This 122-nucleotide RNA sequence belongs to the Rfam family "LOOT RNA". It is annotated as a small RNA.
RNA sequence: GACCUAAACUUUCAGAUUGUCUGGAAGCAUGGUCACAAAUCGCUCUAGACGGCAGAAAGCCCGUCAUUUAGGGAUACGUCUAGAGCGUCAUAGGGGGAAACUUCUAUGGGGUCGCAAGACCC
Dot-bracket structure: ((((....(((((((.....)))))))...))))......(((((((((((......(.((..........)).).))))))))))).((((((((....))))))))(((((....)))))